[Rfam]
RNA sequence: GUCAGCUGAAAUAUAUUUUUGAUCUACUGUCACGCAGGGGGCUUGUUCCGUGAGGAACAGCGCAAGAGUUGAUUAGGGGGCUUUAAAAACAUGGAGAAAAACAUGAAAGAAAGGCAGAAGUUAGAUAGGAGAGAUACAUACACACCCACGGAUGCUCCACAAGUCCGUGGCAACUGUGAUCAUGCAUUAAACAGAGAGGAAACUCUCAGUGUGCAUGGUUUAAAAACCCCUUCUAACAACCCCGAUGUGGACAUAC
Numbered sequence: 001g002u003c004a005g006c007u008g009a010a011a012u013a014u015a016u017u018u019u020u021g022a023u024c025u026a027c028u029g030u031c032a033c034g035c036a037g038g039g040g041g042c043u044u045g046u047u048c049c050g051u052g053a054g055g056a057a058c059a060g061c062g063c064a065a066g067a068g069u070u071g072a073u074u075a076g077g078g079g080g081c082u083u084u085a086a087a088a089a090c091a092u093g094g095a096g097a098a099a100a101a102c103a104u105g106a107a108a109g110a111a112a113g114g115c116a117g118a119a120g121u122u123a124g125a126u127a128g129g130a131g132a133g134a135u136a137c138a139u140a141c142a143c144a145c146c147c148a149c150g151g152a153u154g155c156u157c158c159a160c161a162a163g164u165c166c167g168u169g170g171c172a173a174c175u176g177u178g179a180u181c182a183u184g185c186a187u188u189a190a191a192c193a194g195a196g197a198g199g200a201a202a203c204u205c206u207c208a209g210u211g212u213g214c215a216u217g218g219u220u221u222a223a224a225a226a227c228c229c230c231u232u233c234u235a236a237c238a239a240c241c242c243c244g245a246u247g248u249g250g251a252c253a254u255a256c
Base pairs, nucleotide, nucleotide: 001073002072003071004070005069006068007067014037043060044059045058046057047056048055049054076243077242078241079240081114082113083112084111120237121236122235123234124233125232128229129228142177143176146170147169148168149167150166151165152164153163156251157250158249159248160247161246179219180218181217182216183215184214185213186212187211191210192209194207195206196205197204198203
Dot-bracket structure: (((((((......(......................).....(((((((....)))))))......)))))))..((((.((((..........................)))).....((((((..((............((..((((((((..[[[[[[.)))))))).....)).(((((((((...((.(((((....))))).)))))))))))........))..))))))..))))..]]]]]].....
Source information: The record is a 256-nucleotide sequence, which matches "HNH endonuclease-associated RNA and ORF (HEARO) RNA" in Rfam. It is one of the family's seed sequences. By type it is a non-coding RNA gene.